The family of this 106-nucleotide RNA sequence from Lachnotalea glycerini is "TPP riboswitch aptamer (THI element)". Gene Ontology term of the family: thiamine pyrophosphate binding. A search with the family's covariance model found it, with a score of 58 bits. The family's consensus secondary structure is taken from published work. The source organism's lineage runs through Bacteria, Bacillati, Lachnospirales, Lachnospiraceae and Lachnotalea. Rfam's curators write: Vitamin B(1) in its active form thiamin pyrophosphate (TPP) is an essential coenzyme that is synthesised by coupling of pyrimidine and thiazole moieties in bacteria.
RNA sequence: AAUAAAUAAAAAGGGAGCUUGUAAACAGGCUGAGAGGAAGUUGUGAACUUCGACCUAUAACCUGAUUUGGAUAAUGCCAACGUAGGAAAGAUAAUGCAGAUACAAG
Numbered sequence: 001a002a003u004a005a006a007u008a009a010a011a012a013g014g015g016a017g018c019u020u021g022u023a024a025a026c027a028g029g030c031u032g033a034g035a036g037g038a039a040g041u042u043g044u045g046a047a048c049u050u051c052g053a054c055c056u057a058u059a060a061c062c063u064g065a066u067u068u069g070g071a072u073a074a075u076g077c078c079a080a081c082g083u084a085g086g087a088a089a090g091a092u093a094a095u096g097c098a099g100a101u102a103c104a105a106g
Stems, first nucleotide, its partner, number of pairs: 007093002012056003017030005037051005061086004067080004